[Rfam]
RNA sequence: GGUCGCAAGUUUGAGGCCACAGCAGAAGCGCUCAUCGUGCGGCCUGUCAUAUUCCAACAAAAUCUGUGAAUUCUGCU
Number, nucleotide and partner (000 for none) at each position: 001g000002g000003u000004c000005g000006c000007a000008a000009g000010u000011u000012u000013g000014a000015g044016g043017c042018c041019a000020c000021a077022g076023c075024a074025g073026a072027a071028g040029c039030g038031c000032u000033c000034a000035u000036c000037g000038u030039g029040c028041g018042g017043c016044c015045u000046g000047u000048c066049a065050u000051a063052u062053u061054c000055c000056a000057a000058c000059a000060a000061a053062a052063u051064c000065u049066g048067u000068g000069a000070a000071u027072u026073c025074u024075g023076c022077u021